The record is a 96-nucleotide RNA sequence from Streptomyces sp. TS71-3, which matches "Glycine riboswitch aptamer" in Rfam. Pairs were carried over by alignment from the consensus structure.
RNA sequence: UGAACCCGUGCGGGAGAGCUCCAGGCCAUGGCCAUGGGGCGCCGAAGGAGCAAAUCCUCCCCGGAAACUCUCAGGCCCAAGUACCGCACGGACGAG
Numbered sequence: 001u002g003a004a005c006c007c008g009u010g011c012g013g014g015a016g017a018g019c020u021c022c023a024g025g026c027c028a029u030g031g032c033c034a035u036g037g038g039g040c041g042c043c044g045a046a047g048g049a050g051c052a053a054a055u056c057c058u059c060c061c062c063g064g065a066a067a068c069u070c071u072c073a074g075g076c077c078c079a080a081g082u083a084c085c086g087c088a089c090g091g092a093c094g095a096g
Stems, first nucleotide, its partner, number of pairs: 006091008020039003041076003044072002048070003055063001
Rfam links the family to the GO term glycine biosynthetic process. A search with the family's covariance model found it, with a score of 65 bits.